[Rfam]
RNA sequence: GGCGGUCUUCGGUAGUGGCUGCCGGGAAUUCUGACUCCCGGCCGCUUCGAUCGACGGCCGUA
Numbered sequence: 001g002g003c004g005g006u007c008u009u010c011g012g013u014a015g016u017g018g019c020u021g022c023c024g025g026g027a028a029u030u031c032u033g034a035c036u037c038c039c040g041g042c043c044g045c046u047u048c049g050a051u052c053g054a055c056g057g058c059c060g061u062a
Stems, first nucleotide, its partner, number of pairs: 002061006009054005017046003021042007029034001